[Rfam]
RNA sequence: UGUUUUGUGUGUUUUUUGCAGCUCACGAAUCUAACCCUAACAGCUUGGUUGCUUUAGUUAGUGACAUGGUGACCCCGCAUGUUUACCGCUGUUUUGUGGUUGGUUUUCAGCGAUUCCUGGGGUGUUCGGUUGUGCGUUUCGUGGUUUUAAAAAAGCCAGCUCCGGGUUUCAGGAAUGCGUCCAUGUUUGGUUUAUCUCGACUUGGGUUUCGUUCUCUCGAUCACGCUCCUCGGGGCCACAUCGAUCCCUUGCUCAUUGCUAAGGAUGUCGAUGUGAAGGGUUCGUCCCUGCCGAUCGAUGGGAUCCCGUACGGACAACCUCGAGAGGCCAAUACGAGUAAUGGGAAUACACGAUUGUUUGCGGCCUUCUUGAAAUGUGGAAUGGACUGCCUCGUGUAUUUCAUACAUCC
Numbered sequence: 001u002g003u004u005u006u007g008u009g010u011g012u013u014u015u016u017u018g019c020a021g022c023u024c025a026c027g028a029a030u031c032u033a034a035c036c037c038u039a040a041c042a043g044c045u046u047g048g049u050u051g052c053u054u055u056a057g058u059u060a061g062u063g064a065c066a067u068g069g070u071g072a073c074c075c076c077g078c079a080u081g082u083u084u085a086c087c088g089c090u091g092u093u094u095u096g097u098g099g100u101u102g103g104u105u106u107u108c109a110g111c112g113a114u115u116c117c118u119g120g121g122g123u124g125u126u127c128g129g130u131u132g133u134g135c136g137u138u139u140c141g142u143g144g145u146u147u148u149a150a151a152a153a154a155g156c157c158a159g160c161u162c163c164g165g166g167u168u169u170c171a172g173g174a175a176u177g178c179g180u181c182c183a184u185g186u187u188u189g190g191u192u193u194a195u196c197u198c199g200a201c202u203u204g205g206g207u208u209u210c211g212u213u214c215u216c217u218c219g220a221u222c223a224c225g226c227u228c229c230u231c232g233g234g235g236c237c238a239c240a241u242c243g244a245u246c247c248c249u250u251g252c253u254c255a256u257u258g259c260u261a262a263g264g265a266u267g268u269c270g271a272u273g274u275g276a277a278g279g280g281u282u283c284g285u286c287c288c289u290g291c292c293g294a295u296c297g298a299u300g301g302g303a304u305c306c307c308g309u310a311c312g313g314a315c316a317a318c319c320u321c322g323a324g325a326g327g328c329c330a331a332u333a334c335g336a337g338u339a340a341u342g343g344g345a346a347u348a349c350a351c352g353a354u355u356g357u358u359u360g361c362g363g364c365c366u367u368c369u370u371g372a373a374a375u376g377u378g379g380a381a382u383g384g385a386c387u388g389c390c391u392c393g394u395g396u397a398u399u400u401c402a403u404a405c406a407u408c409c
Base pairs, nucleotide, nucleotide: 004183007180008179009178010177011176013175014174015173016172017171018170020168021167022166023165024164072123073122074121075120076119085114087112088111089110090109091108099160100159101158102157103156104155105153106152107151187331188330189329190328191327192326205319206318207317208314209313210312211311219305220304221303222302224297225296227294228293237275238274239273240272241271242270243269244268245267248263249262250261277289278288279287280286343401344400345399346398347397348396349395350394351393352392353391361388362387363386366381367380368379369378